[Rfam]
RNA sequence: AAAACGGCUCCUUUAGGAGCCACCAAAUAAAAGAAAGUUAAUGAUC
Numbered sequence: 001a002a003a004a005c006g007g008c009u010c011c012u013u014u015a016g017g018a019g020c021c022a023c024c025a026a027a028u029a030a031a032a033g034a035a036a037g038u039u040a041a042u043g044a045u046c
Stems, first nucleotide, its partner, number of pairs: 006021006
Histone 3' UTR stem-loop: a 46-nucleotide sequence from Stylophora pistillata. Taxonomically the source falls in Stylophora (Eukaryota, Metazoa, Cnidaria, Scleractinia). Pairs were carried over by alignment from the consensus structure, which is taken from published work. For this family Rfam cites "Structure of histone mRNA stem-loop, human stem-loop binding protein, and 3'hExo ternary complex" (Tan et al., Science, 2013).